[Rfam]
RNA sequence: UUGUGCUAGGCGGGGAGCUUGCGGUGCCCUUUUCCCGAAAUCCGCAUUAUGCGGGGCUGAAUCCCCUCCUGGAGGGUUUUGUUCUGAAAACAUAUUAACCUGAUCGGCCGCCGCGCAACAGACAGUCGCGAACUUUGUCAGGUCCGGAAGGAAGCAGCAAUAAGUGAUGGAGUCUGUGUCGCGGAUCGAUCCCGGUCAGUUUUUAAUAUUGUUGACAGAAAUGACUCAAUAGGAGGGUGCACAA
Numbered sequence: 001u002u003g004u005g006c007u008a009g010g011c012g013g014g015g016a017g018c019u020u021g022c023g024g025u026g027c028c029c030u031u032u033u034c035c036c037g038a039a040a041u042c043c044g045c046a047u048u049a050u051g052c053g054g055g056g057c058u059g060a061a062u063c064c065c066c067u068c069c070u071g072g073a074g075g076g077u078u079u080u081g082u083u084c085u086g087a088a089a090a091c092a093u094a095u096u097a098a099c100c101u102g103a104u105c106g107g108c109c110g111c112c113g114c115g116c117a118a119c120a121g122a123c124a125g126u127c128g129c130g131a132a133c134u135u136u137g138u139c140a141g142g143u144c145c146g147g148a149a150g151g152a153a154g155c156a157g158c159a160a161u162a163a164g165u166g167a168u169g170g171a172g173u174c175u176g177u178g179u180c181g182c183g184g185a186u187c188g189a190u191c192c193c194g195g196u197c198a199g200u201u202u203u204u205a206a207u208a209u210u211g212u213u214g215a216c217a218g219a220a221a222u223g224a225c226u227c228a229a230u231a232g233g234a235g236g237g238u239g240c241a242c243a244a
Stems, first nucleotide, its partner, number of pairs: 001244006009058003012030004017025003034055004039050001064237007074227005082220005089213001091211002093208006100199008111184005116178002119176005125168005135160004143152003
Shown here is a 244-nucleotide sequence from Desulfonema limicola, a member of the family "Bacterial large signal recognition particle RNA". The match comes from Rfam's covariance-model search (137 bits). It is annotated as a non-coding RNA gene.